[Rfam]
RNA sequence: CGACGUCAGUUCCUCCUCCUGACUCCAGUCGAUCAGGGGGAUUUUAUGACGUCGUACAGAAACUCGGUCUCUUUCACCCAGAAAGCUUCAGGCUGUGGCCGAUAUCACCCGAGCUUUCUGGUUUUGCGUGACCCAACAAAC
Dot-bracket structure: ((((((((.....(((((.(((..........))).))))).....))))))))...........((((.(......((((((((((...((..(((........))))).))))))))))......).))))........
Shown here is a 141-nucleotide RNA from Pleuronectes platessa, a member of the family "Small nucleolar RNA SNORA79". The source organism's lineage runs through Eukaryota, Gnathostomata, Acanthomorphata, Pleuronectiformes and Pleuronectes. The family has 25 seed sequences and 944 matches in Rfam 15.1. From the family's description: ACA65 (SNORA79) is a member of the H/ACA class of snoRNAs that guide the sites of modification of uridines to pseudouridines. This snoRNA was identified by computational screening and its expression in mouse experimentally verified by Northern blot and primer extension analysis. By type it is an H/ACA-box small nucleolar RNA. It scores 80 bits against the family's covariance model. Gene Ontology terms of the family: RNA processing and nucleolus.